[Rfam]
ZMP/ZTP riboswitch aptamer (pfl RNA motif): a 129-nucleotide RNA from Rhodoferax sp. TH121.

RNA sequence: CUGCCUGCACGCGACUGGCGAUAGGCGCUGGGCUCCCAAGGCCCUCUGGCGCUGACGUGGGACACCACUGGGAAGCGUGCCGCAACCCCUAGCGGGGCUUGCGUUCAGCCGUUCGCCUGGGCAGCCCUG
Number, nucleotide and partner (000 for none) at each position: 001c000002u000003g000004c000005c082006u000007g080008c079009a078010c077011g076012c075013g000014a000015c072016u071017g117018g116019c115020g114021a113022u000023a000024g000025g000026c000027g000028c000029u000030g000031g000032g000033c000034u000035c000036c000037c000038a000039a000040g000041g000042c000043c000044c000045u000046c000047u000048g000049g000050c000051g000052c000053u000054g000055a000056c000057g068058u067059g066060g065061g000062a000063c000064a000065c060066c059067a058068c057069u000070g000071g016072g015073a000074a000075g012076c011077g010078u009079g008080c007081c000082g005083c000084a000085a000086c000087c000088c000089c000090u000091a000092g000093c000094g000095g000096g000097g000098c000099u000100u000101g000102c000103g000104u000105u000106c124107a000108g122109c121110c120111g000112u000113u021114c020115g019116c018117c017118u000119g000120g110121g109122c108123a000124g106125c000126c000127c000128u000129g000
Overview: The match comes from Rfam's covariance-model search (51 bits).